RNA sequence: AAAUUAUAUCUGCCGAAUUCCCGAUACAAAGGGAAGUGGGGGAACCGUCUUGGGUGAAUUGAUCUUGCAUUAGAGGGAUCAUAGGGAACCUUCAACCGAAUCCUUAAGCUAACCUCGCAGGCACCGGAAGGAGUUACU
Numbered sequence: 001a002a003a004u005u006a007u008a009u010c011u012g013c014c015g016a017a018u019u020c021c022c023g024a025u026a027c028a029a030a031g032g033g034a035a036g037u038g039g040g041g042g043a044a045c046c047g048u049c050u051u052g053g054g055u056g057a058a059u060u061g062a063u064c065u066u067g068c069a070u071u072a073g074a075g076g077g078a079u080c081a082u083a084g085g086g087a088a089c090c091u092u093c094a095a096c097c098g099a100a101u102c103c104u105u106a107a108g109c110u111a112a113c114c115u116c117g118c119a120g121g122c123a124c125c126g127g128a129a130g131g132a133g134u135u136a137c138u
Base pairs, nucleotide, nucleotide: 011123012122013121014120018035019034020033021032022031036118037117038116039115040114041113052103053102054101060081061080062079063078064077065076066075084097085096

Overview: A member of the RNA family "c-di-AMP riboswitch aptamer (ydaO/yuaA leader)" from Paenibacillus crassostreae, 138 nucleotides long.